A member of the RNA family "nhaA-II RNA" from Brevundimonas sp. Root1279, 84 nucleotides long. It scores 87 bits against the family's covariance model.
[Rfam]
RNA sequence: AUCAGGCCGGGUUCGCUCCCGGUCAGGCCGGCGCUCGGACAGGGGCGAAUCCGGUCCGGCGUCCGUCGAUAACCUGGCGCCACG
Numbered sequence: 001a002u003c004a005g006g007c008c009g010g011g012u013u014c015g016c017u018c019c020c021g022g023u024c025a026g027g028c029c030g031g032c033g034c035u036c037g038g039a040c041a042g043g044g045g046c047g048a049a050u051c052c053g054g055u056c057c058g059g060c061g062u063c064c065g066u067c068g069a070u071a072a073c074c075u076g077g078c079g080c081c082a083c084g
Stems, first nucleotide, its partner, number of pairs: 005024007026056006032047005058081006
Dot-bracket structure: ....(((((((......))))))).(((((((((((......)))))...)))))).((((((............))))))...